[Rfam]
RNA sequence: CUUACUGAGAGUUCUUUGGCAUUCUGUCCACCUCCUUGUCGAAAUCCUCAAGACAGAAAUCUCUUGUCUGUUGAUCUUGGAGGUGGGCAUACUGCCAAUGGAACUGUGUAGG
Numbered sequence: 001c002u003u004a005c006u007g008a009g010a011g012u013u014c015u016u017u018g019g020c021a022u023u024c025u026g027u028c029c030a031c032c033u034c035c036u037u038g039u040c041g042a043a044a045u046c047c048u049c050a051a052g053a054c055a056g057a058a059a060u061c062u063c064u065u066g067u068c069u070g071u072u073g074a075u076c077u078u079g080g081a082g083g084u085g086g087g088c089a090u091a092c093u094g095c096c097a098a099u100g101g102a103a104c105u106g107u108g109u110a111g112g
Base pairs, nucleotide, nucleotide: 013102016098017097018096019095020094021093025089026088027087028086029085030084031083032082033081034080035079
A member of the RNA family "MIR394 microRNA precursor family" from Oryza brachyantha, 112 nucleotides long. Lineage of the source: Eukaryota > Viridiplantae > Streptophytina > Embryophyta > Oryza. For this family Rfam cites "Computational identification of plant microRNAs and their targets, including a stress-induced miRNA" (Jones-Rhoades and Bartel, Mol Cell, 2004). Rfam links the family to the GO terms miRNA-mediated post-transcriptional gene silencing and RISC complex. A search with the family's covariance model found it, with a score of 87 bits. Pairs were carried over by alignment from the consensus structure, which was predicted with WAR.